[Rfam]
Nucleotides: 088
Stems, first nucleotide, its partner, number of pairs: 012037002017032006040082004045078002048073003055067004
Number, partner (000 for none) and nucleotide at each position: 001000g002000u003000u004000u005000g006000a007000a008000a009000a010000a011000g012037g013036c014000a015000u016000a017032c018031c019030a020029u021028c022027c023000g024000a025000a026000a027022g028021g029020a030019u031018g032017g033000c034000g035000c036013g037012c038000a039000a040082a041081g042080c043079c044000a045078c046077u047000c048073a049072c050071c051000u052000a053000a054000g055067u056066c057065u058064c059000a060000a061000a062000g063000c064058g065057g066056g067055a068000u069000a070000c071050g072049g073048u074000a075000g076000a077046a078045g079043g080042g081041c082040u083000g084000c085000c086000g087000g088000a